Overview
U1 spliceosomal RNA: a 164-nucleotide RNA from Myotis lucifugus. The family's RNA type in Rfam is spliceosomal small nuclear RNA. U1 is a small nuclear RNA (snRNA) component of the spliceosome (involved in pre-mRNA splicing). Its 5' end forms complementary base pairs with the 5' splice junction, thus defining the 5' donor site of an intron. There are significant differences in sequence and secondary structure between metazoan and yeast U1 snRNAs, the latter being much longer (568 nucleotides as compared to 164 nucleotides in human). Nevertheless, secondary structure predictions suggest that all U1 snRNAs share a 'common core' consisting of helices I, II, the proximal region of III, and IV. This family does not contain the larger yeast sequences. The family's consensus secondary structure is taken from published work. The source organism's lineage runs through Eukaryota, Dipnotetrapodomorpha, Amniota, Boreoeutheria and Myotis. A reference for the family is Zwieb (1997), "The uRNA database", Nucleic Acids Res. Rfam links the family to the GO terms mRNA 5'-splice site recognition, U1 snRNP and pre-mRNA 5'-splice site binding.
RNA sequence: AUACUUACCUGGCAGGGGAGCUACCAUGAUCACAAAGGCGGUUUUCCCAGGGCAAGGCUCACCCACUGCACUCUGGGUGUGCUGACCCCUGCAAUUUCCCCAAGGGUGGAAAACUAAACUGCAUAAUUUGUGGUCGUGCAGGACUACUUUUCUGCUCUCCUUCA
Number, nucleotide and partner (000 for none) at each position: 001a000002u000003a000004c000005u000006u000007a000008c000009c000010u000011g000012g122013c121014a120015g119016g048017g047018g046019a045020g044021c000022u000023a042024c041025c040026a000027u038028g000029a000030u000031c000032a000033c000034a000035a000036a000037g000038g027039c000040g025041g024042u023043u000044u020045u019046c018047c017048c016049a090050g089051g088052g087053c000054a000055a000056g083057g082058c081059u000060c079061a078062c077063c076064c075065a000066c000067u000068g000069c000070a000071c000072u000073c000074u000075g064076g063077g062078u061079g060080u000081g058082c057083u056084g000085a000086c000087c052088c051089c050090u049091g000092c000093a000094a115095u113096u111097u110098c000099c109100c108101c000102a000103a000104g000105g000106g000107u000108g100109g099110a097111a096112a000113a095114c000115u094116a000117a000118a000119c015120u014121g013122c012123a000124u000125a000126a000127u000128u000129u000130g000131u000132g000133g000134u000135c000136g000137u000138g163139c000140a161141g160142g159143a158144c000145u000146a000147c154148u000149u000150u000151u000152c000153u000154g147155c000156u000157c000158u143159c142160c141161u140162u000163c138164a000